[Rfam]
RNA sequence: UUGAGCUAACACGGGAGUCCGGUGAGCCGGGCUGAGAGGAAGGUUCUCAACCUUCGACCGUCGAACCUGAUCUGGAUAAUGCCAGCGCAGGGAGGCAAAUUCUCAAUACC
Numbered sequence: 001u002u003g004a005g006c007u008a009a010c011a012c013g014g015g016a017g018u019c020c021g022g023u024g025a026g027c028c029g030g031g032c033u034g035a036g037a038g039g040a041a042g043g044u045u046c047u048c049a050a051c052c053u054u055c056g057a058c059c060g061u062c063g064a065a066c067c068u069g070a071u072c073u074g075g076a077u078a079a080u081g082c083c084a085g086c087g088c089a090g091g092g093a094g095g096c097a098a099a100u101u102c103u104c105a106a107u108a109c110c
Base pairs, nucleotide, nucleotide: 007097010094011061012060013059014058017032018031019030020029021028039055040054041053042052043051044050045049066091067090068089069088072085073084074083075082